The family of this 516-nucleotide part of an RNA from Angiostrongylus costaricensis is "Eukaryotic small subunit ribosomal RNA".
A search with the family's covariance model found it, with a score of 1570 bits.
Its family is annotated with ribosome and structural constituent of ribosome in the Gene Ontology.
NCBI's taxonomy places the organism under Eukaryota, Ecdysozoa, Rhabditida, Strongyloidea, Angiostrongylus.
Rfam 15.1 lists 75,755 matches to the family in 2,556 species.
The family is grouped with related families in Rfam's "SSU clan".
The family's consensus secondary structure is taken from published work.

RNA sequence: GGUUAAAAAGCUCGUAGUUGGAUCUGAGUUACAUGCAAUGAUUCGCCUUUGGCGUUAAUCAUUGUUGUGACUAUUUGCUGGUUUUCUAUUGAAAUCUCGAUUUCUUUAGUGGCUAGCGAGUUUACUUUGAAUAAAUUAGAGUGCUCAGAACAAGCGUUUGCUUGAAUGGUCGAUCAUGGAAUAAUAAAAGAGGACUUCGGUUCUAUUUAUUGGUUCAGGAACGGAAGUAAUGAUUAAGAGGGACAAUUCGGGGGCAUUCGUAUCCCUGCGCGAGAGGUGAAAUUCGUGGACCGCAGGGGGACGCCCUAAAGCGAAAGCAUUUGCCAAGAAUGUCUUCAUUAAUCAAGAACGAAAGUCAGAGGUUCGAAGGCGAUUAGAUACCGCCCUAGUUCUGACCGUAAACUAUGCCAUCUAGCGAUCCGAUGGGGUAUUGUUGCCUUGUCGAGGAGCUUCCCGGAAACGAAAGUCUUUCGGUUCCUGGGGUAGUAUGGUUGCAAAGCUGAAACUUAAAGAAAU
Numbered sequence: 001g002g003u004u005a006a007a008a009a010g011c012u013c014g015u016a017g018u019u020g021g022a023u024c025u026g027a028g029u030u031a032c033a034u035g036c037a038a039u040g041a042u043u044c045g046c047c048u049u050u051g052g053c054g055u056u057a058a059u060c061a062u063u064g065u066u067g068u069g070a071c072u073a074u075u076u077g078c079u080g081g082u083u084u085u086c087u088a089u090u091g092a093a094a095u096c097u098c099g100a101u102u103u104c105u106u107u108a109g110u111g112g113c114u115a116g117c118g119a120g121u122u123u124a125c126u127u128u129g130a131a132u133a134a135a136u137u138a139g140a141g142u143g144c145u146c147a148g149a150a151c152a153a154g155c156g157u158u159u160g161c162u163u164g165a166a167u168g169g170u171c172g173a174u175c176a177u178g179g180a181a182u183a184a185u186a187a188a189a190g191a192g193g194a195c196u197u198c199g200g201u202u203c204u205a206u207u208u209a210u211u212g213g214u215u216c217a218g219g220a221a222c223g224g225a226a227g228u229a230a231u232g233a234u235u236a237a238g239a240g241g242g243a244c245a246a247u248u249c250g251g252g253g254g255c256a257u258u259c260g261u262a263u264c265c266c267u268g269c270g271c272g273a274g275a276g277g278u279g280a281a282a283u284u285c286g287u288g289g290a291c292c293g294c295a296g297g298g299g300g301a302c303g304c305c306c307u308a309a310a311g312c313g314a315a316a317g318c319a320u321u322u323g324c325c326a327a328g329a330a331u332g333u334c335u336u337c338a339u340u341a342a343u344c345a346a347g348a349a350c351g352a353a354a355g356u357c358a359g360a361g362g363u364u365c366g367a368a369g370g371c372g373a374u375u376a377g378a379u380a381c382c383g384c385c386c387u388a389g390u391u392c393u394g395a396c397c398g399u400a401a402a403c404u405a406u407g408c409c410a411u412c413u414a415g416c417g418a419u420c421c422g423a424u425g426g427g428g429u430a431u432u433g434u435u436g437c438c439u440u441g442u443c444g445a446g447g448a449g450c451u452u453c454c455c456g457g458a459a460a461c462g463a464a465a466g467u468c469u470u471u472c473g474g475u476u477c478c479u480g481g482g483g484u485a486g487u488a489u490g491g492u493u494g495c496a497a498a499g500c501u502g503a504a505a506c507u508u509a510a511a512g513a514a515a516u
Stems, first nucleotide, its partner, number of pairs: 001478002008476001010350001012348002017343003240337003244332002247330003253325004259303002263299008274285003311318002355396006365389001369385004407475003412466001414451003419446001421444009455462002481508003490501004